[Rfam]
RNA sequence: GCAAGUAUCUUGCGGUGGAUAACCAAAAUCAUAAAAAAAUUCCUCUUUGACGGGCCAAUUUAAAUAUUGGCCUUUUUUUU
Dot-bracket structure: ......((((......))))........(....).................((((((((......)))))))).......
Numbered sequence: 001g002c003a004a005g006u007a008u009c010u011u012g013c014g015g016u017g018g019a020u021a022a023c024c025a026a027a028a029u030c031a032u033a034a035a036a037a038a039a040u041u042c043c044u045c046u047u048u049g050a051c052g053g054g055c056c057a058a059u060u061u062a063a064a065u066a067u068u069g070g071c072c073u074u075u076u077u078u079u080u
Stems, first nucleotide, its partner, number of pairs: 007020004029034001052073008